c-di-AMP riboswitch aptamer (ydaO/yuaA leader): a 178-nucleotide RNA sequence from Metabacillus arenae. NCBI's taxonomy places the organism under Bacteria, Bacillati, Caryophanales, Bacillaceae, Metabacillus. It scores 88 bits against the family's covariance model. This family represents a conserved RNA structure found upstream of the ydaO and yuaA genes in Bacillus subtilis and related genes in other bacteria.
RNA sequence: ACUACGAACACGCUUAAUCUUUUAAGAGCGGGGGAACCAAUUUUGUGGCAUUUGCCACUUGGGGUUAAUCGUUCUAGAAACAAGCAGAGGCAGAACAUACGGCCUCUCUUCUCUAGAAUGUAGGGUACUCUCUAACCCGAAUCCGACAGCUAACCUCGUAAGCGGUAAGGGAGGCGAA
Numbered sequence: 001a002c003u004a005c006g007a008a009c010a011c012g013c014u015u016a017a018u019c020u021u022u023u024a025a026g027a028g029c030g031g032g033g034g035a036a037c038c039a040a041u042u043u044u045g046u047g048g049c050a051u052u053u054g055c056c057a058c059u060u061g062g063g064g065u066u067a068a069u070c071g072u073u074c075u076a077g078a079a080a081c082a083a084g085c086a087g088a089g090g091c092a093g094a095a096c097a098u099a100c101g102g103c104c105u106c107u108c109u110u111c112u113c114u115a116g117a118a119u120g121u122a123g124g125g126u127a128c129u130c131u132c133u134a135a136c137c138c139g140a141a142u143c144c145g146a147c148a149g150c151u152a153a154c155c156u157c158g159u160a161a162g163c164g165g166u167a168a169g170g171g172a173g174g175c176g177a178a
Base pairs, nucleotide, nucleotide: 011164012163013162014161018027019026020025028159029158030157031156032155033154038061039060062144063143064142070120071119072118073117074116075115076114077113078112123138124137125136126135